[Rfam]
RNA: 6S / SsrS RNA
RNA sequence: AGAUUGCUGUGGUGUGCGAAUUCAUACAACAGUGUUGACCGAACAAAUUUUUGUAUUUAUAUGGGAGACAGAAGUCAUCUAACAGCGCGCAGGCCGUUUCACGCGGAAGCAGCUUCAGUUGGAGCGAGUCACCCACCUGCUAUUUCGUGCGGGUUCAAUACAAACCAUGAAUCACCGGCACCAAUACAGCAUUUUG
Numbered sequence: 001a002g003a004u005u006g007c008u009g010u011g012g013u014g015u016g017c018g019a020a021u022u023c024a025u026a027c028a029a030c031a032g033u034g035u036u037g038a039c040c041g042a043a044c045a046a047a048u049u050u051u052u053g054u055a056u057u058u059a060u061a062u063g064g065g066a067g068a069c070a071g072a073a074g075u076c077a078u079c080u081a082a083c084a085g086c087g088c089g090c091a092g093g094c095c096g097u098u099u100c101a102c103g104c105g106g107a108a109g110c111a112g113c114u115u116c117a118g119u120u121g122g123a124g125c126g127a128g129u130c131a132c133c134c135a136c137c138u139g140c141u142a143u144u145u146c147g148u149g150c151g152g153g154u155u156c157a158a159u160a161c162a163a164a165c166c167a168u169g170a171a172u173c174a175c176c177g178g179c180a181c182c183a184a185u186a187c188a189g190c191a192u193u194u195u196g
Stems, first nucleotide, its partner, number of pairs: 002194002005191007012181004017177002032161007039153002063134003067130003078123006089110002094106004